[Rfam]
RNA sequence: GAGUUACUCCUAACUGGCGAGGUUAAGUUCAUAUUUAACGGAGCCGAAGCGAAAGCGAGUCCAAAUAGGGCGAUUAGUCAGUUGGGGUAGACGCGAAACUUUGUGAUCUAUCCAUGGGCAGGUUGAAGGUUAGGUAAAACUAACUGGAGGACCGAACCCGUUGACGUUGAAAAGUCUUGGGAUGACCUGUGGAUAGGGGUGAAAGGCCAAUCAAACUGAGAGAUAGCUCGUU
Numbered sequence: 001g002a003g004u005u006a007c008u009c010c011u012a013a014c015u016g017g018c019g020a021g022g023u024u025a026a027g028u029u030c031a032u033a034u035u036u037a038a039c040g041g042a043g044c045c046g047a048a049g050c051g052a053a054a055g056c057g058a059g060u061c062c063a064a065a066u067a068g069g070g071c072g073a074u075u076a077g078u079c080a081g082u083u084g085g086g087g088u089a090g091a092c093g094c095g096a097a098a099c100u101u102u103g104u105g106a107u108c109u110a111u112c113c114a115u116g117g118g119c120a121g122g123u124u125g126a127a128g129g130u131u132a133g134g135u136a137a138a139a140c141u142a143a144c145u146g147g148a149g150g151a152c153c154g155a156a157c158c159c160g161u162u163g164a165c166g167u168u169g170a171a172a173a174g175u176c177u178u179g180g181g182a183u184g185a186c187c188u189g190u191g192g193a194u195a196g197g198g199g200u201g202a203a204a205g206g207c208c209a210a211u212c213a214a215a216c217u218g219a220g221a222g223a224u225a226g227c228u229c230g231u232u
Stems, first nucleotide, its partner, number of pairs: 005089003009086010021045004027039003049056002059071004092230002095227001099220003103216002108196011119184001121153004128145006157181003163176003198208003

Shown here is a 232-nucleotide part of an RNA from Sediminibacterium sp. Gen4, a member of the family "Bacterial large subunit ribosomal RNA". NCBI's taxonomy places the organism under Bacteria, Pseudomonadati, Chitinophagales, Chitinophagaceae, Sediminibacterium. Pairs were carried over by alignment from the consensus structure, which is taken from published work. Clan: LSU clan.